The family of this 183-nucleotide sequence from Aliidiomarina minuta is "6S / SsrS RNA". It scores 116 bits against the family's covariance model. The source organism's lineage runs through Bacteria, Pseudomonadota, Alteromonadales, Idiomarinaceae and Aliidiomarina. The base pairs follow the family's consensus structure, which is taken from published work.
RNA sequence: UGUUCCCUGGGGUGUUCGCCAGUCGGUGAAUGUCCCUGAGCCGAUGCUACCAGAAAAGGGUCCUGCUUGAUGGUCAGUGUGCAAGCCCGGCGUGUACCGGGAAGCCUGAGAUCAUUAACUCAGCACCCGCCUUGAACCAAGGGUUCAAGGGCGACCACGCGGCAGCGGCACCCUGGGGGACAC
Numbered sequence: 001u002g003u004u005c006c007c008u009g010g011g012g013u014g015u016u017c018g019c020c021a022g023u024c025g026g027u028g029a030a031u032g033u034c035c036c037u038g039a040g041c042c043g044a045u046g047c048u049a050c051c052a053g054a055a056a057a058g059g060g061u062c063c064u065g066c067u068u069g070a071u072g073g074u075c076a077g078u079g080u081g082c083a084a085g086c087c088c089g090g091c092g093u094g095u096a097c098c099g100g101g102a103a104g105c106c107u108g109a110g111a112u113c114a115u116u117a118a119c120u121c122a123g124c125a126c127c128c129g130c131c132u133u134g135a136a137c138c139a140a141g142g143g144u145u146c147a148a149g150g151g152c153g154a155c156c157a158c159g160c161g162g163c164a165g166c167g168g169c170a171c172c173c174u175g176g177g178g179g180a181c182a183c
Stems, first nucleotide, its partner, number of pairs: 002181014017167003032152004037147006058128003063123003067118001069116007081105002086101005